This 134-nucleotide RNA from Coregonus sp. 'balchen' belongs to the Rfam family "Small nucleolar RNA SNORA75".
[Rfam]
RNA sequence: CUCUUCUCAUGAGCUCCACCUGUCCAAACAGUGACCGUGUAUGGAUUCGCACGAGAAGUAGAGCCAAGUCACAGUCAAACAGGCAUCUACCUCCACCUCAGUGGGAGUUUGCCCAUUUCUAAUGUGAAACAAAA
Numbered sequence: 001c002u003c004u005u006c007u008c009a010u011g012a013g014c015u016c017c018a019c020c021u022g023u024c025c026a027a028a029c030a031g032u033g034a035c036c037g038u039g040u041a042u043g044g045a046u047u048c049g050c051a052c053g054a055g056a057a058g059u060a061g062a063g064c065c066a067a068g069u070c071a072c073a074g075u076c077a078a079a080c081a082g083g084c085a086u087c088u089a090c091c092u093c094c095a096c097c098u099c100a101g102u103g104g105g106a107g108u109u110u111g112c113c114c115a116u117u118u119c120u121a122a123u124g125u126g127a128a129a130c131a132a133a134a
Stems, first nucleotide, its partner, number of pairs: 003058006013050002015045003020037001022035003069127005090107001092105004
Source information
From the family's description: U23 belongs to the H/ACA class of snoRNAs. snoRNAs bind a number of proteins (including dyskerin, Gar1p and Nop10p in the case of the H/ACA class) to form snoRNP complexes. This class are thought to guide the sites of modification of uridines to pseudouridines by forming direct base pairing interactions with substrate RNAs. Targets include ribosomal and spliceosomal RNAs as well as the Trypanosoma spliced leader RNA (SL RNA) as possibly other, still unknown cellular RNAs. By type it is an H/ACA-box small nucleolar RNA. A search with the family's covariance model found it, with a score of 83 bits.